Histone 3' UTR stem-loop: a 46-nucleotide sequence from Mytilus galloprovincialis. By type it is a cis-regulatory element. The organism belongs to Mytilus, within Eukaryota. Its family is annotated with mRNA 3'-end processing by stem-loop binding and cleavage in the Gene Ontology. Rfam describes the family as follows. The mRNAs of metazoan histone genes lack a poly-A tail. 3' end processing occurs at a site between a highly conserved stem-loop (modelled by this family) and a purine rich region around 20 nts downstream (the histone downstream element, or HDE).

RNA sequence: AAAAAGGCCCUUUUAAGGGCCACAAAUCUUUCAAAAAAAGAAUCUG
Numbered sequence: 001a002a003a004a005a006g007g008c009c010c011u012u013u014u015a016a017g018g019g020c021c022a023c024a025a026a027u028c029u030u031u032c033a034a035a036a037a038a039a040g041a042a043u044c045u046g
Base pairs, nucleotide, nucleotide: 006021007020008019009018010017011016